[Rfam]
RNA: Archaeal large subunit ribosomal RNA, nucleotides 561 to 659
Organism: Sulfuracidifex metallicus
Nucleotides: 099
Stems, first nucleotide, its partner, number of pairs: 001081010015070002024065006033057001038051005084099004
Number, partner (000 for none) and nucleotide at each position: 001081g002080g003079u004078a005077g006076g007075g008074c009073a010072u011000u012000c013000a014000a015070g016069g017000a018000g019000u020000g021000a022000u023000a024065c025064c026063c027062u028061c029060c030000a031000a032000a033057g034000g035000a036000a037000g038051g039050g040049g041048a042047u043000g044000c045000g046000a047042g048041u049040c050039c051038c052000u053000u054000g055000u056000a057033c058000g059000a060029g061028g062027a063026g064025g065024g066000c067000g068000a069016c070015c071000g072010g073009u074008g075007u076006c077005c078004u079003a080002u081001c082000u083000u084099u085098c086097g087096u088000c089000u090000u091000g092000a093000a094000a095000c096087a097086c098085g099084g